Source information:
This 374-nucleotide sequence from Lepisosteus oculatus belongs to the Rfam family "Small Cajal body-specific RNA 7". It scores 119 bits against the family's covariance model.
RNA sequence: UGGAGGUGAUGAAAUAGAGAUUGGUGCCUGUGUGAAUGUUCUGAGUGGUGUAAUACUGGUAAAUAUAACGAUCAUUGUACUUUUUAAGUUAAAAACACUUGGUAAUGUUUCCUUAAUAGUUAUUGGGUGGGUGGAGGGAGGGAACAGGUGUGCGUGUGGAUGACUGUUGCAUCUAGGCUGGUGAAAAGGGGGCUCUGAAGAUUUCAGUAUCUCUGCUGACAUUGGAGUGCAUCUGAAGCCAGUCACAUUGAAUUUUAAAGGCUUGUUGUGAUCUGGCUGAUGAUUAGAGCCUUGAAAAUGCUCACCUUGCCAGCCUUGGCACCCUUUAGUCUCUAACAGGUACAUUGUGAUGGUGUUCCUGUAAUCUGAUCCAA
Numbered sequence: 001u002g003g004a005g006g007u008g009a010u011g012a013a014a015u016a017g018a019g020a021u022u023g024g025u026g027c028c029u030g031u032g033u034g035a036a037u038g039u040u041c042u043g044a045g046u047g048g049u050g051u052a053a054u055a056c057u058g059g060u061a062a063a064u065a066u067a068a069c070g071a072u073c074a075u076u077g078u079a080c081u082u083u084u085u086a087a088g089u090u091a092a093a094a095a096c097a098c099u100u101g102g103u104a105a106u107g108u109u110u111c112c113u114u115a116a117u118a119g120u121u122a123u124u125g126g127g128u129g130g131g132u133g134g135a136g137g138g139a140g141g142g143a144a145c146a147g148g149u150g151u152g153c154g155u156g157u158g159g160a161u162g163a164c165u166g167u168u169g170c171a172u173c174u175a176g177g178c179u180g181g182u183g184a185a186a187a188g189g190g191g192g193c194u195c196u197g198a199a200g201a202u203u204u205c206a207g208u209a210u211c212u213c214u215g216c217u218g219a220c221a222u223u224g225g226a227g228u229g230c231a232u233c234u235g236a237a238g239c240c241a242g243u244c245a246c247a248u249u250g251a252a253u254u255u256u257a258a259a260g261g262c263u264u265g266u267u268g269u270g271a272u273c274u275g276g277c278u279g280a281u282g283a284u285u286a287g288a289g290c291c292u293u294g295a296a297a298a299u300g301c302u303c304a305c306c307u308u309g310c311c312a313g314c315c316u317u318g319g320c321a322c323c324c325u326u327u328a329g330u331c332u333c334u335a336a337c338a339g340g341u342a343c344a345u346u347g348u349g350a351u352g353g354u355g356u357u358c359c360u361g362u363a364a365u366c367u368g369a370u371c372c373a374a
Base pairs, nucleotide, nucleotide: 001373002372003371004370242272243271244270245269246268247267251264252263254261255260
Rfam links the family to the GO terms RNA processing and nucleolus. Rfam classes the family as a small Cajal body RNA. Lineage of the source: Eukaryota > Eumetazoa > Vertebrata > Teleostomi > Lepisosteus.